[Rfam]
RNA sequence: UUCUCGAAGCGGCAAAUUCAGUGAAAGCUGAAGACGCAAAACUAAAGGGCCUAAGUCAAUAAUGAUAUGGCAGCCAGUUACCGAA
Numbered sequence: 001u002u003c004u005c006g007a008a009g010c011g012g013c014a015a016a017u018u019c020a021g022u023g024a025a026a027g028c029u030g031a032a033g034a035c036g037c038a039a040a041a042c043u044a045a046a047g048g049g050c051c052u053a054a055g056u057c058a059a060u061a062a063u064g065a066u067a068u069g070g071c072a073g074c075c076a077g078u079u080a081c082c083g084a085a
Stems, first nucleotide, its partner, number of pairs: 012037002017032006040079004047075002049071003056065003
RNA: c-di-GMP-I riboswitch aptamer